Record summary
SAM riboswitch aptamer (S box leader): a 107-nucleotide RNA from Chloroflexus aurantiacus. Clan: SAM clan. It is one of the family's seed sequences. Lineage of the source: Bacteria > Chloroflexia > Chloroflexales > Chloroflexus > Chloroflexus aurantiacus.
RNA sequence: UGCUCAUCGAGAUGGGCUGAGGGACUGGCCCGAUGACGCCCGGCAACCCCCGCCAGGGAAGGUGCCAAAUCCAGCGGCAAUGGAUAUCAUUGGCCGAAAGAUGAGAG
Numbered sequence: 001u002g003c004u005c006a007u008c009g010a011g012a013u014g015g016g017c018u019g020a021g022g023g024a025c026u027g028g029c030c031c032g033a034u035g036a037c038g039c040c041c042g043g044c045a046a047c048c049c050c051c052g053c054c055a056g057g058g059a060a061g062g063u064g065c066c067a068a069a070u071c072c073a074g075c076g077g078c079a080a081u082g083g084a085u086a087u088c089a090u091u092g093g094c095c096g097a098a099a100g101a102u103g104a105g106a107g
Stems, first nucleotide, its partner, number of pairs: 001107001003105006015040003021031003025074004042066004047062002049058003070099001075096004080091001